[Rfam]
The record is a 182-nucleotide RNA sequence from Jeotgalibacillus soli, which matches "Lysine riboswitch aptamer" in Rfam.
Pairs were carried over by alignment from the consensus structure, which is taken from published work.

RNA sequence: CGAUGAGGUAGAGGUUGCAGUUAUUAAGAGUAGCUAACCAGAGACUUUAUGGAGUUUAUGACGGUUUGUCAAAAGGAAUAACUGCCGAAGUAUGAAAGAUCCACAUUAUCUUUCCAUACUGGGUUUGCAUCUAACAGGUGUAAAACUGUCACAGAAAUAUUCUGUGGAGAGCUAUUUUAGAG
Numbered sequence: 001c002g003a004u005g006a007g008g009u010a011g012a013g014g015u016u017g018c019a020g021u022u023a024u025u026a027a028g029a030g031u032a033g034c035u036a037a038c039c040a041g042a043g044a045c046u047u048u049a050u051g052g053a054g055u056u057u058a059u060g061a062c063g064g065u066u067u068g069u070c071a072a073a074a075g076g077a078a079u080a081a082c083u084g085c086c087g088a089a090g091u092a093u094g095a096a097a098g099a100u101c102c103a104c105a106u107u108a109u110c111u112u113u114c115c116a117u118a119c120u121g122g123g124u125u126u127g128c129a130u131c132u133a134a135c136a137g138g139u140g141u142a143a144a145a146c147u148g149u150c151a152c153a154g155a156a157a158u159a160u161u162c163u164g165u166g167g168a169g170a171g172c173u174a175u176u177u178u179a180g181a182g
Stems, first nucleotide, its partner, number of pairs: 006177006017085009033069002036066004089120006095113006121147002124144008149167007